[Rfam]
RNA sequence: CACAGCCCCUCACGCGGCGCUAUCUCGCUGAAACCCCCCAGGGCCGGAAGGCAGCAAGGGUAGGUGAGCUCUGGCGGGUGCGUGAGGGGCCCUUCGU
Numbered sequence: 001c002a003c004a005g006c007c008c009c010u011c012a013c014g015c016g017g018c019g020c021u022a023u024c025u026c027g028c029u030g031a032a033a034c035c036c037c038c039c040a041g042g043g044c045c046g047g048a049a050g051g052c053a054g055c056a057a058g059g060g061u062a063g064g065u066g067a068g069c070u071c072u073g074g075c076g077g078g079u080g081c082g083u084g085a086g087g088g089g090c091c092c093u094u095c096g097u
Stems, first nucleotide, its partner, number of pairs: 005090010015078001018076005024068006035060003043052003

This 97-nucleotide sequence from Streptomyces marincola belongs to the Rfam family "Bacterial small signal recognition particle RNA". On this family, see Rosenblad et al., Nucleic Acids Res 2003: "SRPDB: Signal Recognition Particle Database". The family's RNA type in Rfam is non-coding RNA gene. The base pairs follow the family's consensus structure, which is taken from published work. Taxonomically the source falls in Streptomyces (Bacteria, Bacillati, Actinomycetota, Actinomycetes).